[Rfam]
RNA sequence: AAAAAGGGUAGGUUGGCUAUGUAUGCCACUCACAUCUUUUAAUUGAUGAGUGUUGUAUGGUUAUCAAGACAUAUGGCCGACAUAAUUUAUGGAUGGUAUAGGGUUGGUUUGCUUGGCUAACCCUUUA
Numbered sequence: 001a002a003a004a005a006g007g008g009u010a011g012g013u014u015g016g017c018u019a020u021g022u023a024u025g026c027c028a029c030u031c032a033c034a035u036c037u038u039u040u041a042a043u044u045g046a047u048g049a050g051u052g053u054u055g056u057a058u059g060g061u062u063a064u065c066a067a068g069a070c071a072u073a074u075g076g077c078c079g080a081c082a083u084a085a086u087u088u089a090u091g092g093a094u095g096g097u098a099u100a101g102g103g104u105u106g107g108u109u110u111g112c113u114u115g116g117c118u119a120a121c122c123c124u125u126u127a
Stems, first nucleotide, its partner, number of pairs: 008081002011078002014028004029052001031050001033048004053076007100124008112116001